[Rfam]
RNA sequence: AAAAAAUAACAAAUGCUUACUCAUAUAAUCCUGAAAAUAUGGUCAGGAGUUUCUACCGGGAGCCGUAAACUUCCGACUAUGAGUAAGGCUGCUUUGCAU
Dot-bracket structure: .................((((((((...((((((........))))))........((((((.......))))))..))))))))..............
Numbered sequence: 001a002a003a004a005a006a007u008a009a010c011a012a013a014u015g016c017u018u019a020c021u022c023a024u025a026u027a028a029u030c031c032u033g034a035a036a037a038u039a040u041g042g043u044c045a046g047g048a049g050u051u052u053c054u055a056c057c058g059g060g061a062g063c064c065g066u067a068a069a070c071u072u073c074c075g076a077c078u079a080u081g082a083g084u085a086a087g088g089c090u091g092c093u094u095u096g097c098a099u
Stems, first nucleotide, its partner, number of pairs: 018085008029048006057075006